[Rfam]
RNA sequence: UCGUCGGUGCAAAUCCGACCUGACUAACUAUCGCUCCAGCCGGAAGUACUUGUAGCGGUCCAGGAGGUAACAAAUGGGCUGAAGCACUACAAGAAAAGGUCUCCCCGGGAGAUCAACGGGCCAUGCGGGCCGUAACGAGA
Numbered sequence: 001u002c003g004u005c006g007g008u009g010c011a012a013a014u015c016c017g018a019c020c021u022g023a024c025u026a027a028c029u030a031u032c033g034c035u036c037c038a039g040c041c042g043g044a045a046g047u048a049c050u051u052g053u054a055g056c057g058g059u060c061c062a063g064g065a066g067g068u069a070a071c072a073a074a075u076g077g078g079c080u081g082a083a084g085c086a087c088u089a090c091a092a093g094a095a096a097a098g099g100u101c102u103c104c105c106c107g108g109g110a111g112a113u114c115a116a117c118g119g120g121c122c123a124u125g126c127g128g129g130c131c132g133u134a135a136c137g138a139g140a
Base pairs, nucleotide, nucleotide: 020043021042022041024039051091052090053089054088055087056081057080058079059078060077061076066071098114099113100112101111102110103109116133117132118131